[Rfam]
RNA sequence: UUACUCAUGGUUCUCUUCAUAUCGUAUAAAUCUUUCGCCUUUUACUAAAGAUUUCCGUGGGGAGGACCAUCAUGAGUUUAACUUAAUUUUUUGUCGCCCCGCCUUGCGGUGGGGCA
Numbered sequence: 001u002u003a004c005u006c007a008u009g010g011u012u013c014u015c016u017u018c019a020u021a022u023c024g025u026a027u028a029a030a031u032c033u034u035u036c037g038c039c040u041u042u043u044a045c046u047a048a049a050g051a052u053u054u055c056c057g058u059g060g061g062g063a064g065g066a067c068c069a070u071c072a073u074g075a076g077u078u079u080a081a082c083u084u085a086a087u088u089u090u091u092u093g094u095c096g097c098c099c100c101g102c103c104u105u106g107c108g109g110u111g112g113g114g115c116a
Base pairs, nucleotide, nucleotide: 003077004076005075006074009068010067011066012065013064014063015062016061017060018059019058028054029053030052031051032050033049034048035047094116096115097114098113099112100111101110
The record is a 116-nucleotide RNA from Chanos chanos, which matches "U5 spliceosomal RNA" in Rfam. Pairs were carried over by alignment from the consensus structure, which is taken from published work. The source organism's lineage runs through Eukaryota, Deuterostomia, Actinopterygii, Gonorynchiformes and Chanos. On this family, see Zwieb, Nucleic Acids Res 1997: "The uRNA database". A search with the family's covariance model found it, with a score of 94 bits.